Overview:
A member of the RNA family "Glycine riboswitch aptamer" from Allostella humosa, 92 nucleotides long.
RNA sequence: GACGCUCUGGAAAGCGGACGGGCAACCGUCCCACCGACGAGGUAAGCCGCGUUGCGGUGAAUCUUUCAGGUUCUCGGGACAGAGGGGGCGGC
Number, nucleotide and partner (000 for none) at each position: 001g000002a000003c086004g000005c084006u083007c082008u081009g080010g000011a000012a000013a000014g000015c000016g031017g030018a029019c028020g000021g000022g000023c000024a000025a000026c000027c000028g019029u018030c017031c016032c000033a071034c070035c069036g067037a066038c000039g000040a065041g064042g063043u000044a000045a000046g058047c057048c056049g055050c000051g000052u000053u000054g000055c049056g048057g047058u046059g000060a000061a000062u000063c042064u041065u040066u037067c036068a000069g035070g034071u033072u000073c000074u000075c000076g000077g000078g000079a000080c009081a008082g007083a006084g005085g000086g003087g000088g000089c000090g000091g000092c000
Notes:
A search with the family's covariance model found it, with a score of 42 bits. NCBI's taxonomy places the organism under Bacteria, Pseudomonadota, Alphaproteobacteria, Rhodospirillales, Allostella.